[Rfam]
This 55-nucleotide RNA from Sphingobium ummariense belongs to the Rfam family "sul1 RNA". Taxonomically the source falls in Sphingobium ummariense (Bacteria, Pseudomonadota, Sphingobiaceae, Sphingobium).
RNA sequence: GACGGACCCGGAUUGAUUCGGGUGGCUCGGCCCGGCGCCUAUCCCCGGGAUAACC
Numbered sequence: 001g002a003c004g005g006a007c008c009c010g011g012a013u014u015g016a017u018u019c020g021g022g023u024g025g026c027u028c029g030g031c032c033c034g035g036c037g038c039c040u041a042u043c044c045c046c047g048g049g050a051u052a053a054c055c
Stems, first nucleotide, its partner, number of pairs: 006023007031049005
Dot-bracket structure: .....(((((((....))))))).......(((((.........)))))......